[Rfam]
RNA sequence: CCACUCUUAGUGUAAUGGAUAUCACGUAAGAUUCCGGUUCUUGAGAUGGGGGUUCGAUUCCCUCAGAGUGGA
Numbered sequence: 001c002c003a004c005u006c007u008u009a010g011u012g013u014a015a016u017g018g019a020u021a022u023c024a025c026g027u028a029a030g031a032u033u034c035c036g037g038u039u040c041u042u043g044a045g046a047u048g049g050g051g052g053u054u055c056g057a058u059u060c061c062c063u064c065a066g067a068g069u070g071g072a
Base pairs, nucleotide, nucleotide: 001071002070003069004068005067006066007065010025011024012023027043028042029041030040031039048064049063050062051061052060